[Rfam]
RNA sequence: AAGUGUCUUCAGGGCAGGGUGUGAUUCCCGACCGGCGGUGACUAAGUAACUAGAAGUCCGCGAGCGCAAGCUGAUGUGGUGUAACUCCACAACCGACAGUAUAGUCUGGAUGAGAGAAGACCGGG
Numbered sequence: 001a002a003g004u005g006u007c008u009u010c011a012g013g014g015c016a017g018g019g020u021g022u023g024a025u026u027c028c029c030g031a032c033c034g035g036c037g038g039u040g041a042c043u044a045a046g047u048a049a050c051u052a053g054a055a056g057u058c059c060g061c062g063a064g065c066g067c068a069a070g071c072u073g074a075u076g077u078g079g080u081g082u083a084a085c086u087c088c089a090c091a092a093c094c095g096a097c098a099g100u101a102u103a104g105u106c107u108g109g110a111u112g113a114g115a116g117a118a119g120a121c122c123g124g125g
Base pairs, nucleotide, nucleotide: 005121006120007119008118009117010116017029018028019027031105032104033095034094035061036060037059038058056093057092064071065070075091076090077089078088079087097108098107099106
This 125-nucleotide RNA sequence from Streptococcus pyogenes belongs to the Rfam family "FMN riboswitch aptamer (RFN element)". Lineage of the source: Bacteria > Bacilli > Streptococcaceae > Streptococcus pyogenes > Streptococcus pyogenes serotype M12. Rfam's curators put it in the seed alignment. The RFN element is a highly conserved domain that is found frequently in the 5'-untranslated regions of prokaryotic mRNAs that encode for flavin mononucleotide (FMN) biosynthesis and transport proteins.